mir-15 microRNA precursor family: an 82-nucleotide RNA sequence from Neogobius melanostomus. The family is grouped with related families in Rfam's "mir-15 clan". This family represents the related mir-15a and mir-15b sequences. In humans miR-15a and miR-16 are clustered within 0.5 kb at 13q14. This region has been shown to be deleted in more than half of B cell chronic lymphocytic leukaemias (CLL). Both miR-15a and miR-16 are deleted or down-regulated in more than two thirds of CLL cases.
RNA sequence: ACCUGCCACGCUGUAGCAGCACGAAAAUAUUGGUGUGCAAAAUAGACUCCAAUAUUAGCAUUGCUGCUUCAGUGUGGCUGGA
Numbered sequence: 001a002c003c004u005g006c007c008a009c010g011c012u013g014u015a016g017c018a019g020c021a022c023g024a025a026a027a028u029a030u031u032g033g034u035g036u037g038c039a040a041a042a043u044a045g046a047c048u049c050c051a052a053u054a055u056u057a058g059c060a061u062u063g064c065u066g067c068u069u070c071a072g073u074g075u076g077g078c079u080g081g082a
Stems, first nucleotide, its partner, number of pairs: 002081002005078002013070001015068007026056008035047002